RNA: Plastid-ycf3 group II-D1 intron
Organism: Heritiera parvifolia
RNA sequence: AUUCCUUCUGUCGUGUAUCCCCGAUUAAUGCGACCUCAGAUGCUUCAA
Numbered sequence: 001a002u003u004c005c006u007u008c009u010g011u012c013g014u015g016u017a018u019c020c021c022c023g024a025u026u027a028a029u030g031c032g033a034c035c036u037c038a039g040a041u042g043c044u045u046c047a048a
Stems, first nucleotide, its partner, number of pairs: 010025004032044001034042001